[Rfam]
RNA: Glycine riboswitch aptamer
RNA sequence: CUCUGGAAAGUCGCAAGACACCGAAGGGGCAAACCCAUUGGGCGAAUCUCUCAGGUUAUCAACAGAG
Numbered sequence: 001c002u003c004u005g006g007a008a009a010g011u012c013g014c015a016a017g018a019c020a021c022c023g024a025a026g027g028g029g030c031a032a033a034c035c036c037a038u039u040g041g042g043c044g045a046a047u048c049u050c051u052c053a054g055g056u057u058a059u060c061a062a063c064a065g066a067g
Stems, first nucleotide, its partner, number of pairs: 001067005011018002020056003023052002027050003034042001